[Rfam]
RNA: Small nucleolar RNA SNORD27
Organism: Owenia fusiformis
RNA sequence: ACUCUGUGAUGAUUAAUAAAGACAAGCAUAUAUCUGAAAUAUCAUGCGGAUUCAUUAUUUCAACUGAGAGU
Numbered sequence: 001a002c003u004c005u006g007u008g009a010u011g012a013u014u015a016a017u018a019a020a021g022a023c024a025a026g027c028a029u030a031u032a033u034c035u036g037a038a039a040u041a042u043c044a045u046g047c048g049g050a051u052u053c054a055u056u057a058u059u060u061c062a063a064c065u066g067a068g069a070g071u
Base pairs, nucleotide, nucleotide: 001071002070003069004068